Overview
This 83-nucleotide RNA from Phrynocephalus forsythii belongs to the Rfam family "mir-184 microRNA precursor family". Taxonomically the source falls in Phrynocephalus (Eukaryota, Deuterostomia, Euteleostomi, Sauropsida). A reference for the family is Chen et al. (2005), "The developmental miRNA profiles of zebrafish as determined by small RNA cloning", Genes Dev.
[Rfam]
RNA sequence: CCAAUCACAAGCCCUUAUCACUUUUCCAGCCAGCUUUCUCAUUGUAACCGUUGGACGGAGAACUGAUAAGGGUUUGUGUUUGA
Numbered sequence: 001c002c003a004a005u006c007a008c009a010a011g012c013c014c015u016u017a018u019c020a021c022u023u024u025u026c027c028a029g030c031c032a033g034c035u036u037u038c039u040c041a042u043u044g045u046a047a048c049c050g051u052u053g054g055a056c057g058g059a060g061a062a063c064u065g066a067u068a069a070g071g072g073u074u075u076g077u078g079u080u081u082g083a
Base pairs, nucleotide, nucleotide: 012072013071014070015069016068017067018066019065020064022062023061024060025059026058027057030054031053
Gene Ontology terms of the family: gene silencing by miRNA and RISC complex.
It scores 78 bits against the family's covariance model.